[Rfam]
RNA sequence: AAUGCAUCGAGGAGUGGUAACUUCACCACCGUUGGCGUGGUUUUGUACUGCCAGCGGUCGAGAAGUUCCUUGACCUCGUAGCUUC
Numbered sequence: 001a002a003u004g005c006a007u008c009g010a011g012g013a014g015u016g017g018u019a020a021c022u023u024c025a026c027c028a029c030c031g032u033u034g035g036c037g038u039g040g041u042u043u044u045g046u047a048c049u050g051c052c053a054g055c056g057g058u059c060g061a062g063a064a065g066u067u068c069c070u071u072g073a074c075c076u077c078g079u080a081g082c083u084u085c
Stems, first nucleotide, its partner, number of pairs: 004082002008078005016070002019067005026060001029057009
Rfam assigns this 85-nucleotide RNA sequence from Sitophilus oryzae to the family "mir-2765 microRNA precursor family".
Its family is annotated with miRNA-mediated post-transcriptional gene silencing and RISC complex in the Gene Ontology.
The family has 6 seed sequences and 109 matches in Rfam 15.1.
It scores 64 bits against the family's covariance model.
Taxonomically the source falls in Sitophilus (Eukaryota, Bilateria, Arthropoda, Aparaglossata).